[Rfam]
RNA sequence: GUUCCCAGUGAUGGUUUAAAUUAACCAUGCUAAUACUGAUGUCCAUUGACGAGUAAAAGUGUUUUACUGAGGGAACC
Numbered sequence: 001g002u003u004c005c006c007a008g009u010g011a012u013g014g015u016u017u018a019a020a021u022u023a024a025c026c027a028u029g030c031u032a033a034u035a036c037u038g039a040u041g042u043c044c045a046u047u048g049a050c051g052a053g054u055a056a057a058a059g060u061g062u063u064u065u066a067c068u069g070a071g072g073g074a075a076c077c
Base pairs, nucleotide, nucleotide: 001076002075003074004073005072
The family of this 77-nucleotide sequence is "Small nucleolar RNA snoR53Y". Rfam classes the family as a C/D-box small nucleolar RNA. The family is grouped with related families in Rfam's "snoR53 clan". The family has 7 seed sequences and 513 matches in Rfam 15.1. On this family, see Brown et al., RNA 2001: "Multiple snoRNA gene clusters from Arabidopsis".